Overview:
The record is an 88-nucleotide sequence from Paenibacillus tyrphae, which matches "c-di-GMP-I riboswitch aptamer" in Rfam. Lineage of the source: Bacteria > Bacillati > Caryophanales > Paenibacillaceae > Paenibacillus.

RNA sequence: CACUGAUAAAGGCAAACCUGUUGAAAAGCGGGGACGCAAAGCUCCGGGUCUAAGGCAUAAGUUAUGCGAUGACGGCCGAGCCGCCAAA
Number, nucleotide and partner (000 for none) at each position: 001c000002a000003c000004u000005g000006a000007u000008a000009a000010a000011g000012g037013c036014a000015a000016a000017c032018c031019u030020g029021u028022u027023g000024a000025a000026a000027a022028g021029c020030g019031g018032g017033g000034a000035c000036g013037c012038a000039a000040a000041g081042c080043u079044c000045c078046g077047g076048g073049u072050c071051u000052a000053a000054g000055g067056c066057a065058u064059a000060a000061g000062u000063u000064a058065u057066g056067c055068g000069a000070u000071g050072a049073c048074g000075g000076c047077c046078g045079a043080g042081c041082c000083g000084c000085c000086a000087a000088a000